[Rfam]
RNA sequence: GGGUCUUGGGGGGCGUCCCCAAGAGGAUUGUUCUGAUGGCCGGGCCGCCAUCUG
Numbered sequence: 001g002g003g004u005c006u007u008g009g010g011g012g013g014c015g016u017c018c019c020c021a022a023g024a025g026g027a028u029u030g031u032u033c034u035g036a037u038g039g040c041c042g043g044g045c046c047g048c049c050a051u052c053u054g
Stems, first nucleotide, its partner, number of pairs: 005023007033054001035052002038049003
This 54-nucleotide RNA sequence belongs to the Rfam family "nhaA-I RNA". Rfam classes the family as a riboswitch. From the family's description: Acidobacteria, Alphaproteobacteria, Betaproteobacteria and Gammaproteobacteria, Verrucomicrobia, cand. division NC10.